Rfam assigns this 130-nucleotide RNA sequence from Brassica oleracea to the family "MIR9563 microRNA precursor family". Pairs were carried over by alignment from the consensus structure, which was predicted with RNAalifold. The organism belongs to Brassica oleracea, within Eukaryota.

[Rfam]
RNA sequence: GGAAGUUAACAAACUGUUUAUUAACUUUUAACUAAAAAAACUAAGAACCGGUUCUUAAAUAAAGACUUUAAGAACCGGUUCUUAGCUUUUUUAGUUAAAAGUUAAGAAAUCGUAUCGUUUCUUAAUUUCC
Numbered sequence: 001g002g003a004a005g006u007u008a009a010c011a012a013a014c015u016g017u018u019u020a021u022u023a024a025c026u027u028u029u030a031a032c033u034a035a036a037a038a039a040a041c042u043a044a045g046a047a048c049c050g051g052u053u054c055u056u057a058a059a060u061a062a063a064g065a066c067u068u069u070a071a072g073a074a075c076c077g078g079u080u081c082u083u084a085g086c087u088u089u090u091u092u093a094g095u096u097a098a099a100a101g102u103u104a105a106g107a108a109a110u111c112g113u114a115u116c117g118u119u120u121c122u123u124a125a126u127u128u129c130c
Stems, first nucleotide, its partner, number of pairs: 001130009011120004016110004021105019041085007